[Rfam]
RNA sequence: GCCCGGGUGGCGGAAUUGGCAGACGCGCCGGACUCAAAAUCCGGUUCCGCAAGGAGUGUGGGUUCGACCCCCACCCCGGGUA
Number, nucleotide and partner (000 for none) at each position: 001g081002c080003c079004c078005g077006g076007g075008u000009g000010g026011c025012g024013g000014a000015a000016u000017u000018g000019g000020c000021a000022g000023a000024c012025g011026c010027g000028c044029c043030g042031g041032a040033c000034u000035c000036a000037a000038a000039a000040u032041c031042c030043g029044g028045u000046u000047c000048c000049g000050c000051a000052a000053g000054g000055a000056g000057u000058g074059u073060g072061g071062g070063u000064u000065c000066g000067a000068c000069c000070c062071c061072c060073a059074c058075c007076c006077c005078g004079g003080g002081u001082a000
Overview:
Rfam assigns this 82-nucleotide sequence from Oceanipulchritudo coccoides to the family "tRNA". The organism belongs to Oceanipulchritudo, within Bacteria. Its Rfam clan is "tRNA clan". The base pairs follow the family's consensus structure, which is taken from published work. Its family is annotated with triplet codon-amino acid adaptor activity in the Gene Ontology.